[Rfam]
RNA sequence: AGGCUGCAAUAAACAUUCAUUGCUGUCGGUGGGUUUACAUGAGAAUAACUCGCUGACCAAUGAAUGCAGACUGCGGUUCA
Numbered sequence: 001a002g003g004c005u006g007c008a009a010u011a012a013a014c015a016u017u018c019a020u021u022g023c024u025g026u027c028g029g030u031g032g033g034u035u036u037a038c039a040u041g042a043g044a045a046u047a048a049c050u051c052g053c054u055g056a057c058c059a060a061u062g063a064a065u066g067c068a069g070a071c072u073g074c075g076g077u078u079c080a
Stems, first nucleotide, its partner, number of pairs: 002079002004076005014066009025057007033049003
Dot-bracket structure: .(((((((.....(((((((((..(((((((.(((...........))).)))))))))))))))).....))))).)).
A member of the RNA family "mir-181 microRNA precursor family" from Mola mola, 80 nucleotides long.
Taxonomically the source falls in Mola (Eukaryota, Actinopterygii, Osteoglossocephalai, Euteleosteomorpha).
For this family Rfam cites "New microRNAs from mouse and human" (Lagos-Quintana et al., RNA, 2003).
It scores 68 bits against the family's covariance model.